RNA sequence: AAUUUUCCGAGAGUUCCCCCAAACACUUCAGUGAUUUUUUGUUUUCUCGAAAGAGAAAUAACUCAAUGAAGUGAUUGAGGGAACUCUAGGAAAAAC
Numbered sequence: 001a002a003u004u005u006u007c008c009g010a011g012a013g014u015u016c017c018c019c020c021a022a023a024c025a026c027u028u029c030a031g032u033g034a035u036u037u038u039u040u041g042u043u044u045u046c047u048c049g050a051a052a053g054a055g056a057a058a059u060a061a062c063u064c065a066a067u068g069a070a071g072u073g074a075u076u077g078a079g080g081g082a083a084c085u086c087u088a089g090g091a092a093a094a095a096c
Stems, first nucleotide, its partner, number of pairs: 005092004011086008020077001022076002024073007032065003
This 96-nucleotide RNA from Striga asiatica belongs to the Rfam family "mir-395 microRNA precursor family". A reference for the family is Jones-Rhoades and Bartel (2004), "Computational Identification of Plant MicroRNAs and Their Targets, Including a Stress-Induced miRNA", Mol Cell. mir-395 was identified in both Arabidopsis thaliana and Oryza sativa computationally and was later experimentally verified. mir-395 is thought to target mRNAs coding for ATP sulphurylases. The mature sequence is excised from the 3' arm of the hairpin. Gene Ontology terms of the family: miRNA-mediated post-transcriptional gene silencing and RISC complex. NCBI's taxonomy places the organism under Eukaryota, Spermatophyta, Mesangiospermae, Lamiales, Striga.